RNA sequence: AGUUGACGCUGGACCAAUCCUCCCGGUCUUGCGUCAGCUGUUCCCCUCUGGAGGUUUUGACCUUCACACCUUAAGGGCCGCGGCUUCCGCUGGCCCUUUUCU
Numbered sequence: 001a002g003u004u005g006a007c008g009c010u011g012g013a014c015c016a017a018u019c020c021u022c023c024c025g026g027u028c029u030u031g032c033g034u035c036a037g038c039u040g041u042u043c044c045c046c047u048c049u050g051g052a053g054g055u056u057u058u059g060a061c062c063u064u065c066a067c068a069c070c071u072u073a074a075g076g077g078c079c080g081c082g083g084c085u086u087c088c089g090c091u092g093g094c095c096c097u098u099u100u101c102u
Stems, first nucleotide, its partner, number of pairs: 001039005007033003013029001049066007074097006080090004
Dot-bracket structure: (((((.(((...(...............).))).))))).........(((((((....))))))).......((((((((((...)))).)))))).....
The record is a 102-nucleotide RNA from Agrobacterium albertimagni, which matches "Alphaproteobacterial ar15" in Rfam. The family has 61 seed sequences and 316 matches in Rfam 15.1. The match comes from Rfam's covariance-model search (86 bits). For this family Rfam cites "A survey of sRNA families in alpha-proteobacteria" (del Val et al., RNA Biol, 2012). Its family is annotated with protein binding in the Gene Ontology. It is annotated as a small RNA.